[Rfam]
RNA: Glycine riboswitch aptamer
RNA sequence: CCCGGCCGCUCUGGAAAGCAGACCGGGCGCCCGCGCCCGGCUCUCACCGACGGUGCAAGCCCGCCGCCGCCCCCGCCGGGGCCGCGUGGCCGGUGAAGCUCUCAGGUCUUAUGACAGAGGGGGAGGC
Numbered sequence: 001c002c003c004g005g006c007c008g009c010u011c012u013g014g015a016a017a018g019c020a021g022a023c024c025g026g027g028c029g030c031c032c033g034c035g036c037c038c039g040g041c042u043c044u045c046a047c048c049g050a051c052g053g054u055g056c057a058a059g060c061c062c063g064c065c066g067c068c069g070c071c072c073c074c075g076c077c078g079g080g081g082c083c084g085c086g087u088g089g090c091c092g093g094u095g096a097a098g099c100u101c102u103c104a105g106g107u108c109u110u111a112u113g114a115c116a117g118a119g120g121g122g123g124a125g126g127c
Base pairs, nucleotide, nucleotide: 006122007121009119010118011117012116013115020044021043022042046107047106048105049103050102053101055099059094060093